[Rfam]
RNA sequence: CUGUCCGAGGGGCGCUGCAGCAAGCGAAAGCUUGUCAGGCUCGGACGGGGCGCGUCCCGCUCGGCAUCCGCCGCGCGCACUACGCAUCAACGGCGCCCAUUCGCA
Numbered sequence: 001c002u003g004u005c006c007g008a009g010g011g012g013c014g015c016u017g018c019a020g021c022a023a024g025c026g027a028a029a030g031c032u033u034g035u036c037a038g039g040c041u042c043g044g045a046c047g048g049g050g051c052g053c054g055u056c057c058c059g060c061u062c063g064g065c066a067u068c069c070g071c072c073g074c075g076c077g078c079a080c081u082a083c084g085c086a087u088c089a090a091c092g093g094c095g096c097c098c099a100u101u102c103g104c105a
Stems, first nucleotide, its partner, number of pairs: 002047007021034005
SAH (S-adenosyl-L-homocysteine) riboswitch aptamer: a 105-nucleotide sequence from Pseudomonas knackmussii.
The family has 52 seed sequences and 1,354 matches in Rfam 15.1.
Gene Ontology terms of the family: S-adenosylhomocysteine metabolic process and regulation of gene expression.
Pairs were carried over by alignment from the consensus structure, which is taken from published work.
The match comes from Rfam's covariance-model search (63 bits).